[Rfam]
RNA sequence: GAAUGAGGUGAUGAUUUGGAUUUUUGUUCCCUAUUGGAUUGAUUCGCCAGAAUGAUGGCUUCAAAUGUAUUAGCUCUAGCUGAUCGUUC
Number, nucleotide and partner (000 for none) at each position: 001g000002a088003a087004u086005g085006a000007g000008g000009u000010g000011a000012u000013g000014a000015u000016u000017u000018g000019g000020a000021u000022u000023u000024u000025u000026g000027u000028u000029c000030c000031c000032u000033a000034u000035u000036g000037g000038a000039u000040u000041g062042a000043u000044u000045c000046g059047c058048c057049a000050g000051a000052a000053u000054g000055a000056u000057g048058g047059c046060u000061u000062c041063a000064a000065a000066u000067g000068u000069a000070u000071u000072a000073g000074c000075u000076c000077u000078a000079g000080c000081u000082g000083a000084u000085c005086g004087u003088u002089c000
Rfam assigns this 89-nucleotide sequence from Cannabis sativa to the family "Small nucleolar RNA Z102/R77". By type it is a C/D-box small nucleolar RNA. NCBI's taxonomy places the organism under Eukaryota, Spermatophyta, Pentapetalae, Cannabaceae, Cannabis. Clan: SNORD44 clan. Rfam 15.1 lists 1,346 matches to the family in 224 species. Pairs were carried over by alignment from the consensus structure, which was predicted with PFOLD.